[Rfam]
RNA sequence: GAAGUUUUAGGUUGCGCCGUUUGGUCGCCACGGCACACGAAACAGCGUUGGUUAUAGACAACCUUCUUUCCGCUGCAGCGAUGCGGCAGGACAGAUGACGUGUAUCAGGUCUGUUUCGUGUGCUGGAUUGUUGACGCAUUCAUUUAUUGGUAUCGCAUGAACCCCAUCGUAAUUAAUCGGCUUCAACGGAAGCUGGGCUACACUUUUAAUC
Numbered sequence: 001g002a003a004g005u006u007u008u009a010g011g012u013u014g015c016g017c018c019g020u021u022u023g024g025u026c027g028c029c030a031c032g033g034c035a036c037a038c039g040a041a042a043c044a045g046c047g048u049u050g051g052u053u054a055u056a057g058a059c060a061a062c063c064u065u066c067u068u069u070c071c072g073c074u075g076c077a078g079c080g081a082u083g084c085g086g087c088a089g090g091a092c093a094g095a096u097g098a099c100g101u102g103u104a105u106c107a108g109g110u111c112u113g114u115u116u117c118g119u120g121u122g123c124u125g126g127a128u129u130g131u132u133g134a135c136g137c138a139u140u141c142a143u144u145u146a147u148u149g150g151u152a153u154c155g156c157a158u159g160a161a162c163c164c165c166a167u168c169g170u171a172a173u174u175a176a177u178c179g180g181c182u183u184c185a186a187c188g189g190a191a192g193c194u195g196g197g198c199u200a201c202a203c204u205u206u207u208a209a210u211c
Stems, first nucleotide, its partner, number of pairs: 013030002015027002017024002031125015052109002054105003058101002067093001069091001072087005177196008
The record is a 211-nucleotide RNA from Salmonella enterica, which matches "rncO" in Rfam. The literature on the family includes a 1996 paper in RNA by Matsunaga et al., "RNase III autoregulation: structure and function of rncO, the posttranscriptional 'operator'". It is annotated as a cis-regulatory element. About the family: This family represents a bacterial regulatory element (rncO) found in the rnc leader sequence. It is one of the family's seed sequences.